[Rfam]
RNA sequence: UAAGCUGGCCGGGUGAUCGCGGUGGUUUGGGCCACCGAGGAAAGUCCGGGCUCUACAGGGCAGAAGGCCGGGCAACUCCCGGCGGGGGAAACCCCGGGAAAGUGCCGCAGAAAAUAUACCGCCAGCUGUUCAGCUGGUAAGGGUGAAAUGGUGCGGUAAGAGCGCACCGGCCUUUCGGGAAACCGAAAGGGCCUGGCAAACCCCCUUCGGAGUAAGUCCAAAUAGGAAGGCAAUAAGAUGGCCCGUCUUGAUGCCUUCGGGUAUGGACGCUUGAGAGCUGCAGGCAACUGCAGCUCCAGAUAGAUGAUUACCCUUCGACAGAACCCGGCUUAUAGGCCAGCUUAACAU
Numbered sequence: 001u002a003a004g005c006u007g008g009c010c011g012g013g014u015g016a017u018c019g020c021g022g023u024g025g026u027u028u029g030g031g032c033c034a035c036c037g038a039g040g041a042a043a044g045u046c047c048g049g050g051c052u053c054u055a056c057a058g059g060g061c062a063g064a065a066g067g068c069c070g071g072g073c074a075a076c077u078c079c080c081g082g083c084g085g086g087g088g089a090a091a092c093c094c095c096g097g098g099a100a101a102g103u104g105c106c107g108c109a110g111a112a113a114a115u116a117u118a119c120c121g122c123c124a125g126c127u128g129u130u131c132a133g134c135u136g137g138u139a140a141g142g143g144u145g146a147a148a149u150g151g152u153g154c155g156g157u158a159a160g161a162g163c164g165c166a167c168c169g170g171c172c173u174u175u176c177g178g179g180a181a182a183c184c185g186a187a188a189g190g191g192c193c194u195g196g197c198a199a200a201c202c203c204c205c206u207u208c209g210g211a212g213u214a215a216g217u218c219c220a221a222a223u224a225g226g227a228a229g230g231c232a233a234u235a236a237g238a239u240g241g242c243c244c245g246u247c248u249u250g251a252u253g254c255c256u257u258c259g260g261g262u263a264u265g266g267a268c269g270c271u272u273g274a275g276a277g278c279u280g281c282a283g284g285c286a287a288c289u290g291c292a293g294c295u296c297c298a299g300a301u302a303g304a305u306g307a308u309u310a311c312c313c314u315u316c317g318a319c320a321g322a323a324c325c326c327g328g329c330u331u332a333u334a335g336g337c338c339a340g341c342u343u344a345a346c347a348u
Stems, first nucleotide, its partner, number of pairs: 001344010011333001012312007020037007042331003046328005051212004058244004063208005068082005083096005097203002102201002104197003119142002121138007150168006170192001171190008216268004226258006235249005276295008
The family of this 348-nucleotide RNA sequence from Halarsenatibacter silvermanii is "Bacterial RNase P class A". Ribonuclease P (RNase P) is a ubiquitous endoribonuclease, found in archaea, bacteria and eukarya as well as chloroplasts and mitochondria. Rfam links the family to the GO terms ribonuclease P activity, dimeric ribonuclease P complex and tRNA processing. Pairs were carried over by alignment from the consensus structure, which is taken from published work. It is annotated as a ribozyme. NCBI's taxonomy places the organism under Bacteria, Bacillati, Bacillota, Halarsenatibacteraceae, Halarsenatibacter.